A member of the RNA family "mir-19 microRNA precursor family" from Albula goreensis, 79 nucleotides long.
[Rfam]
RNA sequence: GGGAUCAGUGAGUUUUGCAGGUUUGCAUCCAGCUUGUGAAAAUUCUGCUGUGCAAAUCCAUGCAAAACUCACUGUGCCU
Dot-bracket structure: ..(..(((((((((((((((((((((((..(((.............)))))))))).)).))))))))))))))..)..
Lineage of the source: Eukaryota > Bilateria > Vertebrata > Albulinae > Albula.
Rfam links the family to the GO terms miRNA-mediated post-transcriptional gene silencing and RISC complex.
A reference for the family is Mourelatos et al. (2002), "miRNPs: a novel class of ribonucleoproteins containing numerous microRNAs", Genes Dev.